Annotation: The family of this 144-nucleotide sequence from Gossypium lobatum is "MIR7502 microRNA precursor family". NCBI's taxonomy places the organism under Eukaryota, Streptophyta, Euphyllophyta, Malvoideae, Gossypium. Rfam links the family to the GO terms miRNA-mediated post-transcriptional gene silencing and RISC complex. A search with the family's covariance model found it, with a score of 92 bits.

RNA sequence: UAUUAAAAAUUUAAUUCAUUUUUAUGGUUAAAAUUAGUGUGGUUAACGGAAUAACUAAAUAGUUAUACAUAACAUGACACAUGUACCUCAUGCUAAUAUAUAGGGACCAGUUUUUGACAGUAUAAAUUGAUGGAUUUUUUAACA
Numbered sequence: 001u002a003u004u005a006a007a008a009a010u011u012u013a014a015u016u017c018a019u020u021u022u023u024a025u026g027g028u029u030a031a032a033a034u035u036a037g038u039g040u041g042g043u044u045a046a047c048g049g050a051a052u053a054a055c056u057a058a059a060u061a062g063u064u065a066u067a068c069a070u071a072a073c074a075u076g077a078c079a080c081a082u083g084u085a086c087c088u089c090a091u092g093c094u095a096a097u098a099u100a101u102a103g104g105g106a107c108c109a110g111u112u113u114u115u116g117a118c119a120g121u122a123u124a125a126a127u128u129g130a131u132g133g134a135u136u137u138u139u140u141a142a143c144a
Stems, first nucleotide, its partner, number of pairs: 003142007011134002014131003018127004023122003028117006
Rfam 15.1 lists 74,505 matches to the family in 24 species.